[Rfam]
RNA sequence: UAGAACAAUGUAGAUAAGGGAAGUCAGCAAAAUAGAUCUAUAACUUUAGGAAAAGGAUUAGCUCUAAGGGUUAGGUGCGUUAGGCCUUAAGGAGACAGCCCUAGCGCAGAUUAGCACUAACUGCAAGGUAGGCGCCUUUUAGCGCUAGGGUUCUAGUACCCUUAGCAGGCUUUAGCUGUCUAGCGCACGCUUAAUAACUAACUUAGAACUAGUACAGACAAGGGGAAUCUAACUGUCUAAUUAAAACAUAGCAUUGCAAUAGCUAGAAAGUAGUGUUAACGCAAUGUAAUUUCUGCCUAGUGCCUUAAAUGUCAAAGUAAAGAGAUUUAACUAAGCGCAGGUAAACAGUAGGAGUAACUAUAACUCUCUUAAGGUAGCUAAAUACCUUAUUAUCUAAUUAGUAACGCGCAUGAAUAGAUUAACAAGAUUCCUACUAUCCCUAUCUACUAUCUAGCGAAACCACAGCUAAGGGAACAGGCUUAGCUAA
Numbered sequence: 001u002a003g004a005a006c007a008a009u010g011u012a013g014a015u016a017a018g019g020g021a022a023g024u025c026a027g028c029a030a031a032a033u034a035g036a037u038c039u040a041u042a043a044c045u046u047u048a049g050g051a052a053a054a055g056g057a058u059u060a061g062c063u064c065u066a067a068g069g070g071u072u073a074g075g076u077g078c079g080u081u082a083g084g085c086c087u088u089a090a091g092g093a094g095a096c097a098g099c100c101c102u103a104g105c106g107c108a109g110a111u112u113a114g115c116a117c118u119a120a121c122u123g124c125a126a127g128g129u130a131g132g133c134g135c136c137u138u139u140u141a142g143c144g145c146u147a148g149g150g151u152u153c154u155a156g157u158a159c160c161c162u163u164a165g166c167a168g169g170c171u172u173u174a175g176c177u178g179u180c181u182a183g184c185g186c187a188c189g190c191u192u193a194a195u196a197a198c199u200a201a202c203u204u205a206g207a208a209c210u211a212g213u214a215c216a217g218a219c220a221a222g223g224g225g226a227a228u229c230u231a232a233c234u235g236u237c238u239a240a241u242u243a244a245a246a247c248a249u250a251g252c253a254u255u256g257c258a259a260u261a262g263c264u265a266g267a268a269a270g271u272a273g274u275g276u277u278a279a280c281g282c283a284a285u286g287u288a289a290u291u292u293c294u295g296c297c298u299a300g301u302g303c304c305u306u307a308a309a310u311g312u313c314a315a316a317g318u319a320a321a322g323a324g325a326u327u328u329a330a331c332u333a334a335g336c337g338c339a340g341g342u343a344a345a346c347a348g349u350a351g352g353a354g355u356a357a358c359u360a361u362a363a364c365u366c367u368c369u370u371a372a373g374g375u376a377g378c379u380a381a382a383u384a385c386c387u388u389a390u391u392a393u394c395u396a397a398u399u400a401g402u403a404a405c406g407c408g409c410a411u412g413a414a415u416a417g418a419u420u421a422a423c424a425a426g427a428u429u430c431c432u433a434c435u436a437u438c439c440c441u442a443u444c445u446a447c448u449a450u451c452u453a454g455c456g457a458a459a460c461c462a463c464a465g466c467u468a469a470g471g472g473a474a475c476a477g478g479c480u481u482a483g484c485u486a487a
Stems, first nucleotide, its partner, number of pairs: 001453004010447007018439003035059005044049001060210002063207006069199005075188009084166002091159001097152011109140002114135002117132002120129003223432007230424001234248003251287007262274004291418002295349002300346002302342004310337003318329004351367005369373001390404004466483005
RNA: Eukaryotic large subunit ribosomal RNA, nucleotides 1869 to 2355
Organism: Massarina eburnea